RNA sequence: AUCCUUUCCAAGGAUACGCUUGGUUUGUGGUUCCAAGCUAGUCUAAAUAGUUGCCGAGUUCGCAGCCUCUUAGUGCUCGGAUGAGUGGCGCUGUUUAUGACCAACGUCCCACAGUAG
Dot-bracket structure: ((((((...))))))..((((((...[[[[..))))))..((((((......((((.((....(((........)))...))...)))).....))).))).......]]]].....
RNA: RAGATH-11 RNA
Organism: Brachionus plicatilis